The family of this 58-nucleotide RNA sequence from Nocardioides agri is "Actino-pnp RNA".
[Rfam]
RNA sequence: CCCGGUCCUCGGUAGUGGCUCCCGCUGGUGACAGCGUGGGCCUCGAUCGAAGACCGGC
Dot-bracket structure: .((((((.(((((...(((((.(((((....))))).)))))...))))).)))))).

It is annotated as a cis-regulatory element.